RNA sequence: ACGUAUAGCAUCGCCGAUGGUAUUGCGUUCCGGUUUUCCUGGGUUCUCCCGGCGUAUCCGAAGCCGCAUGCGCUUCCUCCCUCGCCUGUCGGCGAUACGCCCGCCUGGCCUCGCUCCGCAAAAAGGGCGAGGUUUUUU
Dot-bracket structure: ..................................................((((((((.......(((.(((..........))).)))....))))))))......(((((((((........))))))))).....
Numbered sequence: 001a002c003g004u005a006u007a008g009c010a011u012c013g014c015c016g017a018u019g020g021u022a023u024u025g026c027g028u029u030c031c032g033g034u035u036u037u038c039c040u041g042g043g044u045u046c047u048c049c050c051g052g053c054g055u056a057u058c059c060g061a062a063g064c065c066g067c068a069u070g071c072g073c074u075u076c077c078u079c080c081c082u083c084g085c086c087u088g089u090c091g092g093c094g095a096u097a098c099g100c101c102c103g104c105c106u107g108g109c110c111u112c113g114c115u116c117c118g119c120a121a122a123a124a125g126g127g128c129g130a131g132g133u134u135u136u137u138u
Stems, first nucleotide, its partner, number of pairs: 051101008066089003070085003108133009
Shown here is a 138-nucleotide sequence from Arminella tumorigenes, a member of the family "Rhizobiales sRNA Atu_C7". On this family, see Wilms et al., RNA Biol 2012: "Deep sequencing uncovers numerous small RNAs on all four replicons of the plant pathogen Agrobacterium tumefaciens".